The family of this 118-nucleotide RNA sequence from Anas platyrhynchos is "Small nucleolar RNA SNORA61".
By type it is an H/ACA-box small nucleolar RNA.
Rfam links the family to the GO terms RNA processing and nucleolus.
Rfam describes the family as follows. ACA61 is a member of the H/ACA class of snoRNA that guide the sites of modification of uridines to pseudouridines.
The source organism's lineage runs through Eukaryota, Anseriformes, Anatinae, Anas and Anas platyrhynchos.
Pairs were carried over by alignment from the consensus structure, which was predicted with PFOLD.
A search with the family's covariance model found it, with a score of 86 bits.

RNA sequence: CCCCUCCAGAUCCCUUUCCCAUCAGAUCUGAAUACCGGUCUUGUGGUCAAAAAAGGAGGAAAAGGAAAAUUCAAACUGGUCUUGGCCUUUUUGCUGGUCCAGCCCAGCUCUGAGAGGG
Numbered sequence: 001c002c003c004c005u006c007c008a009g010a011u012c013c014c015u016u017u018c019c020c021a022u023c024a025g026a027u028c029u030g031a032a033u034a035c036c037g038g039u040c041u042u043g044u045g046g047u048c049a050a051a052a053a054a055g056g057a058g059g060a061a062a063a064g065g066a067a068a069a070u071u072c073a074a075a076c077u078g079g080u081c082u083u084g085g086c087c088u089u090u091u092u093g094c095u096g097g098u099c100c101a102g103c104c105c106a107g108c109u110c111u112g113a114g115a116g117g118g
Stems, first nucleotide, its partner, number of pairs: 003059005019046003023043001025040004076107004081102002085098003